[Rfam]
RNA sequence: CAAUGCAGGUAAAUUUUGCCCCUUAUAGUAGAAAUAUUAUAAGUGUAACUCCUUUAAUUCAUGGGAACUCUCUCAUUUGAGACAAUCAUGAGCCAAGCUUAAUAAAUUACUAGGAAGGUGCAACGACUAUUAUGUACAAUCAAGUGAUUGGAAACAGGGAGAACCUAAGUCUCAUUAGAUAUGGUUAAGAUAUAGUCUGAACUUUGUAGGAGACUACAAG
Numbered sequence: 001c002a003a004u005g006c007a008g009g010u011a012a013a014u015u016u017u018g019c020c021c022c023u024u025a026u027a028g029u030a031g032a033a034a035u036a037u038u039a040u041a042a043g044u045g046u047a048a049c050u051c052c053u054u055u056a057a058u059u060c061a062u063g064g065g066a067a068c069u070c071u072c073u074c075a076u077u078u079g080a081g082a083c084a085a086u087c088a089u090g091a092g093c094c095a096a097g098c099u100u101a102a103u104a105a106a107u108u109a110c111u112a113g114g115a116a117g118g119u120g121c122a123a124c125g126a127c128u129a130u131u132a133u134g135u136a137c138a139a140u141c142a143a144g145u146g147a148u149u150g151g152a153a154a155c156a157g158g159g160a161g162a163a164c165c166u167a168a169g170u171c172u173c174a175u176u177a178g179a180u181a182u183g184g185u186u187a188a189g190a191u192a193u194a195g196u197c198u199g200a201a202c203u204u205u206g207u208a209g210g211a212g213a214c215u216a217c218a219a220g
Stems, first nucleotide, its partner, number of pairs: 005023001008020005027038003049161004054156001059091006069082004092119002098113002123198001125197005164184002168180001170178001205218005
Group I catalytic intron: a 220-nucleotide sequence from Silviavirus SA11. From the family's description: Group I catalytic introns are large self-splicing ribozymes. A reference for the family is Cech (1990), "Self-splicing of group I introns", Annu Rev Biochem. The family's consensus secondary structure is taken from published work. Taxonomically the source falls in Silviavirus SA11 (Viruses, Uroviricota, Caudoviricetes, Twortvirinae).